[Rfam]
RNA sequence: AAUAGAAGCUGUUAGGUGAGGCUCCUAUGUGAAAAAUGCUACUGCUCAGAAACGUCGAAAAACGCCAAUGAGUCAGCUGUUCUAGUCAAAGUAAGGCUUGAACUAACGUAGCUGUUAUUGAAUAACUACAUCACAUAGUGCUAAAGCUCAACGACUGGCUAAAGCU
Numbered sequence: 001a002a003u004a005g006a007a008g009c010u011g012u013u014a015g016g017u018g019a020g021g022c023u024c025c026u027a028u029g030u031g032a033a034a035a036a037u038g039c040u041a042c043u044g045c046u047c048a049g050a051a052a053c054g055u056c057g058a059a060a061a062a063c064g065c066c067a068a069u070g071a072g073u074c075a076g077c078u079g080u081u082c083u084a085g086u087c088a089a090a091g092u093a094a095g096g097c098u099u100g101a102a103c104u105a106a107c108g109u110a111g112c113u114g115u116u117a118u119u120g121a122a123u124a125a126c127u128a129c130a131u132c133a134c135a136u137a138g139u140g141c142u143a144a145a146g147c148u149c150a151a152c153g154a155c156u157g158g159c160u161a162a163a164g165c166u
Base pairs, nucleotide, nucleotide: 007160008159009158010157011152012151013094015148016147017146020142021141022140025138026137027136028135029134030133031132032131038112039111040110041109042108044073045072046071047070048069053064054063055062079103080102081101082100085097086096087095114126115125116124

This 166-nucleotide sequence from Lentilactobacillus buchneri belongs to the Rfam family "M-box riboswitch aptamer (ykoK leader)". It is one of the family's seed sequences. For this family Rfam cites "New RNA motifs suggest an expanded scope for riboswitches in bacterial genetic control" (Barrick et al., Proc Natl Acad Sci U S A, 2004). Rfam 15.1 lists 1,095 matches to the family in 932 species. M-box riboswitch, also know as ykoK leader is described as a metaloregulatory RNA that sense divalent metals and function as a genetic control element of genes related to divalent metal transport in bacteria. It was first reported upstream of the B.subtilis ykoK gene and genes with related functions in other bacteria.